[Rfam]
Nucleotides: 186
Stems, first nucleotide, its partner, number of pairs: 028054005034042002150171009
Number, partner (000 for none) and nucleotide at each position: 001000g002000a003000u004000c005000g006000c007000a008000a009000a010000c011000u012000g013000a014000a015000g016000g017000a018000c019000c020000c021000a022000a023000a024000g025000a026000c027000a028054g029053c030052a031051g032050g033000u034042g035041c036000u037000a038000a039000c040000c041035g042034c043000u044000u045000a046000a047000u048000a049000u050032c051031c052030u053029g054028c055000c056000g057000a058000g059000g060000c061000c062000a063000u064000c065000u066000u067000u068000c069000a070000g071000g072000a073000a074000g075000a076000g077000a078000a079000a080000a081000g082000u083000c084000a085000a086000a087000a088000a089000a090000a091000g092000u093000a094000a095000a096000c097000g098000c099000a100000u101000u102000c103000g104000c105000u106000u107000g108000c109000c110000u111000c112000u113000u114000u115000a116000c117000u118000u119000u120000u121000u122000c123000c124000c125000u126000g127000c128000a129000c130000u131000u132000u133000g134000a135000c136000u137000u138000c139000c140000u141000c142000a143000a144000g145000a146000u147000u148000a149000a150171a151170c152169c153168c154167c155166g156165g157164c158163a159000c160000u161000g162000u163158u164157g165156u166155c167154g168153g169152g170151g171150u172000u173000u174000u175000u176000u177000a178000a179000u180000g181000a182000g183000u184000u185000g186000u
Shown here is a 186-nucleotide RNA from Desertifilum tharense, a member of the family "Ribosomal protein L10 leader". The match comes from Rfam's covariance-model search (50 bits). Lineage of the source: Bacteria > Bacillati > Desertifilaceae > Desertifilum > Desertifilum tharense. From the family's description: This family is a putative r-protein leader autoregulatory structure found in B. subtilis and other low-GC Gram-positive bacteria. It is located in the 5' untranslated regions of mRNAs encoding ribosomal proteins L10 and L12 (rplJ-rplL). A Rho-independent transcription terminator structure that is probably involved in regulation is included at the 3' end.